Source information:
A member of the RNA family "Purine riboswitch aptamer" from Cohnella pontilimi, 100 nucleotides long. Gene Ontology term of the family: purine nucleobase biosynthetic process. Pairs were carried over by alignment from the consensus structure, which is taken from published work. The source organism's lineage runs through Bacteria, Bacillati, Bacilli, Paenibacillaceae and Cohnella.
RNA sequence: CGCCUUUGCUGUCGACGCACGCGUAUAAACUCGGGAAUCGGCCCGAACGUCUCUACCCGGAAACCGUAAUUUCCGGACUACGCGGCGACUUGUUCCAAGC
Numbered sequence: 001c002g003c004c005u006u007u008g009c010u011g012u013c014g015a016c017g018c019a020c021g022c023g024u025a026u027a028a029a030c031u032c033g034g035g036a037a038u039c040g041g042c043c044c045g046a047a048c049g050u051c052u053c054u055a056c057c058c059g060g061a062a063a064c065c066g067u068a069a070u071u072u073c074c075g076g077a078c079u080a081c082g083c084g085g086c087g088a089c090u091u092g093u094u095c096c097a098a099g100c
Stems, first nucleotide, its partner, number of pairs: 020084006031046005057076007